[Rfam]
RNA sequence: CAAAAGGCUCUUUUCAGAGCCACCACUGAUCUCAAAAGAAAGAGCU
Numbered sequence: 001c002a003a004a005a006g007g008c009u010c011u012u013u014u015c016a017g018a019g020c021c022a023c024c025a026c027u028g029a030u031c032u033c034a035a036a037a038g039a040a041a042g043a044g045c046u
Stems, first nucleotide, its partner, number of pairs: 006021006
Rfam assigns this 46-nucleotide RNA from Marmota marmota to the family "Histone 3' UTR stem-loop". Rfam links the family to the GO term mRNA 3'-end processing by stem-loop binding and cleavage. Rfam describes the family as follows. The mRNAs of metazoan histone genes lack a poly-A tail. 3' end processing occurs at a site between a highly conserved stem-loop (modelled by this family) and a purine rich region around 20 nts downstream (the histone downstream element, or HDE). NCBI's taxonomy places the organism under Eukaryota, Chordata, Dipnotetrapodomorpha, Glires, Marmota marmota. Rfam classes the family as a cis-regulatory element.